A member of the RNA family "Alphaproteobacteria transfer-messenger RNA", 338 nucleotides long. Gene Ontology term of the family: RNA catabolic process. Bacterial tmRNA, also known as 10Sa RNA or SsrA, is named for its dual tRNA and mRNA-like properties. Its role is to liberate the mRNA from a stalled ribosome.
RNA sequence: UAACUUGACAUUUAUUCAAUACUACUGUAUAAUAAACAUGUGUAUUUUUUAUACACUAUGGCAAUAAAAUUACCUUGUAAUAGGUGUAUUGGACCCGAGGGCAGUACUCGGCGCCUCCACCAUAUUUUUUGAUUGAUACGGGGGCGAGUAAGGAUCGACAUGCAUAGUAAAGAUGGUAGCUUUGCUCGGUUAGAUACCACCGCUAAGAGUUCACAAUUUAGAUGCAAACGAUAACUUUGCUGCUGAAGACAAUGUUGCAUUAGCUGCUUAAUUUAGGCACUAUAACUUCAUUGCUAUAAGCACGGUUUAGGGAACGCCGGGUAACAGAAGUUCCCCCA
Numbered sequence: 001u002a003a004c005u006u007g008a009c010a011u012u013u014a015u016u017c018a019a020u021a022c023u024a025c026u027g028u029a030u031a032a033u034a035a036a037c038a039u040g041u042g043u044a045u046u047u048u049u050u051a052u053a054c055a056c057u058a059u060g061g062c063a064a065u066a067a068a069a070u071u072a073c074c075u076u077g078u079a080a081u082a083g084g085u086g087u088a089u090u091g092g093a094c095c096c097g098a099g100g101g102c103a104g105u106a107c108u109c110g111g112c113g114c115c116u117c118c119a120c121c122a123u124a125u126u127u128u129u130u131g132a133u134u135g136a137u138a139c140g141g142g143g144g145c146g147a148g149u150a151a152g153g154a155u156c157g158a159c160a161u162g163c164a165u166a167g168u169a170a171a172g173a174u175g176g177u178a179g180c181u182u183u184g185c186u187c188g189g190u191u192a193g194a195u196a197c198c199a200c201c202g203c204u205a206a207g208a209g210u211u212c213a214c215a216a217u218u219u220a221g222a223u224g225c226a227a228a229c230g231a232u233a234a235c236u237u238u239g240c241u242g243c244u245g246a247a248g249a250c251a252a253u254g255u256u257g258c259a260u261u262a263g264c265u266g267c268u269u270a271a272u273u274u275a276g277g278c279a280c281u282a283u284a285a286c287u288u289c290a291u292u293g294c295u296a297u298a299a300g301c302a303c304g305g306u307u308u309a310g311g312g313a314a315c316g317c318c319g320g321g322u323a324a325c326a327g328a329a330g331u332u333c334c335c336c337c338a
Stems, first nucleotide, its partner, number of pairs: 040056005060186005070179005076173001085164003090160002095111005112146007187202004193212002196210002303319004310335005

The match comes from Rfam's covariance-model search (238 bits).